RNA: SucA RNA motif
RNA sequence: UCGCAAUCCGCCAACCGGUCAAGCCGUGUCGCGGAAGGUUUUUGAACCAGCCAACAGCCUCGUGGACGAGGCGAAAGGUGAGCG
Numbered sequence: 001u002c003g004c005a006a007u008c009c010g011c012c013a014a015c016c017g018g019u020c021a022a023g024c025c026g027u028g029u030c031g032c033g034g035a036a037g038g039u040u041u042u043u044g045a046a047c048c049a050g051c052c053a054a055c056a057g058c059c060u061c062g063u064g065g066a067c068g069a070g071g072c073g074a075a076a077g078g079u080g081a082g083c084g
Stems, first nucleotide, its partner, number of pairs: 002084003007035005016026004037048004050079003057072006